[Rfam]
RNA sequence: UACCGACGCACAUUAAAAGCGUCGCGGUCUGAAAGCCGGCUCGUCCCCCGCCGCUUCAGGCUUCCAGAACAAAGGCCUUAUCCCCCCUCUCCGGGCCUUUGUUCUUAUUUUUGAAAGAGUCGCUACAGUAUCCCCCCAUGCUGUGGCGACUUUUU
Numbered sequence: 001u002a003c004c005g006a007c008g009c010a011c012a013u014u015a016a017a018a019g020c021g022u023c024g025c026g027g028u029c030u031g032a033a034a035g036c037c038g039g040c041u042c043g044u045c046c047c048c049c050g051c052c053g054c055u056u057c058a059g060g061c062u063u064c065c066a067g068a069a070c071a072a073a074g075g076c077c078u079u080a081u082c083c084c085c086c087c088u089c090u091c092c093g094g095g096c097c098u099u100u101g102u103u104c105u106u107a108u109u110u111u112u113g114a115a116a117g118a119g120u121c122g123c124u125a126c127a128g129u130a131u132c133c134c135c136c137c138a139u140g141c142u143g144u145g146g147c148g149a150c151u152u153u154u155u
Stems, first nucleotide, its partner, number of pairs: 028060006038052003067104011116151001120149011